[Rfam]
RNA sequence: GAAGGUUUGGCCCUUCGAAGUCGCCUUUCGGGAGGAGGCUUCAAACCACCACAUGCUGCGUUGGCUGUAGACCGUCGUGGUGAGCGAUGUGGAAAAGGCACCGUAAGAGGUGUCAGGU
Numbered sequence: 001g002a003a004g005g006u007u008u009g010g011c012c013c014u015u016c017g018a019a020g021u022c023g024c025c026u027u028u029c030g031g032g033a034g035g036a037g038g039c040u041u042c043a044a045a046c047c048a049c050c051a052c053a054u055g056c057u058g059c060g061u062u063g064g065c066u067g068u069a070g071a072c073c074g075u076c077g078u079g080g081u082g083a084g085c086g087a088u089g090u091g092g093a094a095a096a097g098g099c100a101c102c103g104u105a106a107g108a109g110g111u112g113u114c115a116g117g118u
Stems, first nucleotide, its partner, number of pairs: 001016005017042006024035004047117001049092006055081002058078003062074003097114006
Dot-bracket structure: (((((......)))))((((((.((((....)))).))))))....(.((((((((.(((.(((.......))).))).)).....))))))....((((((......))))))..).
Source information: The record is a 118-nucleotide RNA from Actinoplanes awajinensis, which matches "Group II catalytic intron D1-D4-2" in Rfam. Rfam 15.1 lists 1,231 matches to the family in 625 species. On this family, see Bonen and Vogel, Trends Genet 2001: "The ins and outs of group II introns". Gene Ontology term of the family: Group II intron splicing. Lineage of the source: Bacteria > Bacillati > Actinomycetes > Micromonosporales > Actinoplanes awajinensis.